[Rfam]
Rfam assigns this 78-nucleotide RNA sequence from Neotoma lepida to the family "mir-3473 microRNA precursor family".
RNA sequence: ACCACUGAGCCAUCUCUCCAGCCCUCUCAUUUUUGUUUUUUAAAGCAAUUUUUGGGGCUGGAGGGAUGGCUCGGUGGU
Numbered sequence: 001a002c003c004a005c006u007g008a009g010c011c012a013u014c015u016c017u018c019c020a021g022c023c024c025u026c027u028c029a030u031u032u033u034u035g036u037u038u039u040u041u042a043a044a045g046c047a048a049u050u051u052u053u054g055g056g057g058c059u060g061g062a063g064g065g066a067u068g069g070c071u072c073g074g075u076g077g078u
Stems, first nucleotide, its partner, number of pairs: 002077023

Its family is annotated with miRNA-mediated post-transcriptional gene silencing, cellular response to mechanical stimulus and RISC complex in the Gene Ontology. The base pairs follow the family's consensus structure, which was predicted with RNAalifold.